The family of this 381-nucleotide RNA from Rhodophyticola porphyridii is "Bacterial RNase P class A".
Pairs were carried over by alignment from the consensus structure, which is taken from published work.
Rfam classes the family as a ribozyme.
Taxonomically the source falls in Rhodophyticola (Bacteria, Pseudomonadati, Rhodobacterales, Roseobacteraceae).
Rfam links the family to the GO terms ribonuclease P activity, tRNA processing and dimeric ribonuclease P complex.
[Rfam]
RNA sequence: GCGGAGGGUCGGAUGGCCGCGGGGCCCGAGGCUCCGAGGAAAGUCCGGACUCCCUGAAGCAACGGUGCCGGGUAACGCCCGGGCGGAGCAAUCCGACGGAAAGCGCCACAGAAAACAAACCGCCGGUCCUUCGACCGGUAAGGGUGAAACGGUGGGGUAAGAGCCCACCGCGGGACGGGCAACCGGACCGGCACGGCAAGCCCCACCGGGAGCAAUGCCAAAUAGGGAUCUCGCGGGGCGGAUAGCCCCAGGGCCGCUUCAGCCCGAGAGAUCCGGGUUGGCAGCUAAAGCCAGCGGGCGACCGCUGGCAUAGAGGAAUGGUCAUCCAUGGGCGGGACCACCCGCCUUGGACAAAAUCCGGCUUACAGACCCUCCGCGCGG
Dot-bracket structure: ((((((((((((((((((.(((((((...)))))))....[[[.[[[[[((((.....[...((((((((((.....)))))(((((....)))).)((...(((((............(((((((((....)))))))..)).......((((((.......))))))((((..(((....)))..))).)..)))..)))))))))))))...((((......((((((...................((((....]..))))...)))))).....))))......((((((((....))))))))..........)))))))..............................]]]]]]]].).))))))))))....